SAM riboswitch aptamer (S box leader): a 110-nucleotide RNA sequence from Mucilaginibacter robiniae.

RNA sequence: UGCUUAUAGAGAAAGAUGGAGGGACUGGACCCUGCGAAAUCUUAGCAACCUGUGCUUACAAGGUGCUACAUUCUACUCGGCAUUUUAAACAGAUGCCGGACAGAUAAGCA
Numbered sequence: 001u002g003c004u005u006a007u008a009g010a011g012a013a014a015g016a017u018g019g020a021g022g023g024a025c026u027g028g029a030c031c032c033u034g035c036g037a038a039a040u041c042u043u044a045g046c047a048a049c050c051u052g053u054g055c056u057u058a059c060a061a062g063g064u065g066c067u068a069c070a071u072u073c074u075a076c077u078c079g080g081c082a083u084u085u086u087a088a089a090c091a092g093a094u095g096c097c098g099g100a101c102a103g104a105u106a107a108g109c110a
Stems, first nucleotide, its partner, number of pairs: 001110007013043005021032003026075004044067004049063002051060003071102001077099009
Clan: SAM clan.
NCBI's taxonomy places the organism under Bacteria, Sphingobacteriia, Sphingobacteriales, Sphingobacteriaceae, Mucilaginibacter.